[Rfam]
RNA sequence: CAGGCAUGGUGAUGAUUGUUUUAUAUUCUGAUGUUUUCUGAUGAACAUUAACCUCCUACUCAUGCUGA
Numbered sequence: 001c002a003g004g005c006a007u008g009g010u011g012a013u014g015a016u017u018g019u020u021u022u023a024u025a026u027u028c029u030g031a032u033g034u035u036u037u038c039u040g041a042u043g044a045a046c047a048u049u050a051a052c053c054u055c056c057u058a059c060u061c062a063u064g065c066u067g068a
Stems, first nucleotide, its partner, number of pairs: 006063004027044002

Rfam assigns this 68-nucleotide RNA sequence from Rosa chinensis to the family "Small nucleolar RNA Z105".
Rfam classes the family as a C/D-box small nucleolar RNA.
The base pairs follow the family's consensus structure, which was predicted with CMfinder.
NCBI's taxonomy places the organism under Eukaryota, Euphyllophyta, Spermatophyta, eudicotyledons, Rosa.
Gene Ontology terms of the family: nucleolus and RNA processing.